[Rfam]
RNA sequence: GCCCUGUGGUUGCUGGGCCCUGCUCUGCCCGUGCAGGGCUCCAGUGGUAGGGAUGGGCCAACAGUGACACUGUGGGUUACGCAUGGAGCCUGUGACCCGUGAGCAGCUCCCACAGCCCGGCCACAGUGACAGCC
Numbered sequence: 001g002c003c004c005u006g007u008g009g010u011u012g013c014u015g016g017g018c019c020c021u022g023c024u025c026u027g028c029c030c031g032u033g034c035a036g037g038g039c040u041c042c043a044g045u046g047g048u049a050g051g052g053a054u055g056g057g058c059c060a061a062c063a064g065u066g067a068c069a070c071u072g073u074g075g076g077u078u079a080c081g082c083a084u085g086g087a088g089c090c091u092g093u094g095a096c097c098c099g100u101g102a103g104c105a106g107c108u109c110c111c112a113c114a115g116c117c118c119g120g121c122c123a124c125a126g127u128g129a130c131a132g133c134c
Stems, first nucleotide, its partner, number of pairs: 001058004007050001010047008019037005070126001072124004077119001081116002084112003088108001090106004

This 134-nucleotide RNA sequence from Campylorhamphus procurvoides belongs to the Rfam family "Small nucleolar RNA SNORA84".
NCBI's taxonomy places the organism under Eukaryota, Craniata, Tetrapoda, Sauria, Campylorhamphus.
By type it is an H/ACA-box small nucleolar RNA.
For this family Rfam cites "Experimental RNomics: identification of 140 candidates for small non-messenger RNAs in the plant Arabidopsis thaliana" (Marker et al., Curr Biol, 2002).
A search with the family's covariance model found it, with a score of 89 bits.